This 61-nucleotide sequence from Cuspidothrix issatschenkoi belongs to the Rfam family "Plastid-psbN 5UTR RNA". The family's RNA type in Rfam is cis-regulatory element. A search with the family's covariance model found it, with a score of 52 bits. Plastid psbN is a non-coding RNA (ncRNA) recognised in plastids. It was reported as a conserved 11 stem-loop in the prime untranslated region (5UTR) of psbN genes. It has been reported that the motif is retained in a subset of mature transcripts in barley, which can suggests a possible role in transcript alternative 5 prime processing.
RNA sequence: AAAAGCACCCAUUAAAGGUGUUGUUCCCCAACCUGGAGAUACUUUACCAUACUCAGCAUUU
Numbered sequence: 001a002a003a004a005g006c007a008c009c010c011a012u013u014a015a016a017g018g019u020g021u022u023g024u025u026c027c028c029c030a031a032c033c034u035g036g037a038g039a040u041a042c043u044u045u046a047c048c049a050u051a052c053u054c055a056g057c058a059u060u061u
Base pairs, nucleotide, nucleotide: 017045018044020042021041024038025037026036027035